[Rfam]
RNA sequence: CCUGGACCCGGGAAGAAUCCCGGGUGGCUUUUCCGGCCGCCGAUCCGCCGGACAACG
Numbered sequence: 001c002c003u004g005g006a007c008c009c010g011g012g013a014a015g016a017a018u019c020c021c022g023g024g025u026g027g028c029u030u031u032u033c034c035g036g037c038c039g040c041c042g043a044u045c046c047g048c049c050g051g052a053c054a055a056c057g
Base pairs, nucleotide, nucleotide: 006025007024008023009022010021011020013018032052033051034050035049036048037047

Rfam assigns this 57-nucleotide RNA sequence from Roseovarius sp. A46 to the family "sul1 RNA".
The base pairs follow the family's consensus structure, which is taken from published work.